[Rfam]
Record summary
The family of this 115-nucleotide RNA from Euzebyella marina is "SAM riboswitch aptamer (S box leader)". Rfam links the family to the GO term regulation of gene expression. NCBI's taxonomy places the organism under Bacteria, Bacteroidota, Flavobacteriia, Flavobacteriales, Euzebyella.

RNA sequence: UAGUUAUCAAGAAAGGUGGAGGGAAUAGACCCUUUGAUACCUUAGCAACCCUUUGCCAAAAUAGGUAGAGAAGGUGCUACGUUCUAACCUAAAAUUAUUUUGGGGCAGAUAACGC
Numbered sequence: 001u002a003g004u005u006a007u008c009a010a011g012a013a014a015g016g017u018g019g020a021g022g023g024a025a026u027a028g029a030c031c032c033u034u035u036g037a038u039a040c041c042u043u044a045g046c047a048a049c050c051c052u053u054u055g056c057c058a059a060a061a062u063a064g065g066u067a068g069a070g071a072a073g074g075u076g077c078u079a080c081g082u083u084c085u086a087a088c089c090u091a092a093a094a095u096u097a098u099u100u101u102g103g104g105g106c107a108g109a110u111a112a113c114g115c
Base pairs, nucleotide, nucleotide: 003113004112005111006110007109008108013043014042015041016040017039021032022031023030026087028085044078045077046076047075049074050073051070052069053068054067055066056065083107088104089103090102091101092100093099